[Rfam]
RNA sequence: CUCUUAUCGAGAGUGGCGGAGGGACUGGCCCGAUGAAGCCCGGCAACCAGAGGCGCGGUGGCGCCUCCAGGUGCCAAAUCCUGCAGGGGCAUGCCCCUGAGAGAUGAGAG
Numbered sequence: 001c002u003c004u005u006a007u008c009g010a011g012a013g014u015g016g017c018g019g020a021g022g023g024a025c026u027g028g029c030c031c032g033a034u035g036a037a038g039c040c041c042g043g044c045a046a047c048c049a050g051a052g053g054c055g056c057g058g059u060g061g062c063g064c065c066u067c068c069a070g071g072u073g074c075c076a077a078a079u080c081c082u083g084c085a086g087g088g089g090c091a092u093g094c095c096c097c098u099g100a101g102a103g104a105u106g107a108g109a110g
Stems, first nucleotide, its partner, number of pairs: 001110008013041001015040003021031003025083001027081002042075004047071002050067004079102001084099006